This 104-nucleotide RNA from Defluviitalea raffinosedens belongs to the Rfam family "SAM riboswitch aptamer (S box leader)". The source organism's lineage runs through Bacteria, Clostridia, Lachnospirales, Defluviitaleaceae and Defluviitalea.
RNA sequence: UUCUUAUCAAGAGAGGUGGAGGGAAAGGGCCCGAUGAAACCCGGCAACCAGCAUAUUCAUGCAGUGGUGCCAAUUCCCCCGAAUGUGCAUUCGGAAGAUGAGGA
Numbered sequence: 001u002u003c004u005u006a007u008c009a010a011g012a013g014a015g016g017u018g019g020a021g022g023g024a025a026a027g028g029g030c031c032c033g034a035u036g037a038a039a040c041c042c043g044g045c046a047a048c049c050a051g052c053a054u055a056u057u058c059a060u061g062c063a064g065u066g067g068u069g070c071c072a073a074u075u076c077c078c079c080c081g082a083a084u085g086u087g088c089a090u091u092c093g094g095a096a097g098a099u100g101a102g103g104a
Base pairs, nucleotide, nucleotide: 001104002103003102004101005100006099007098008097013042015041016040017039021032022031023030027078028077029076043071044070045069046068048067049066051062052061053060075096080093081092082091083090084089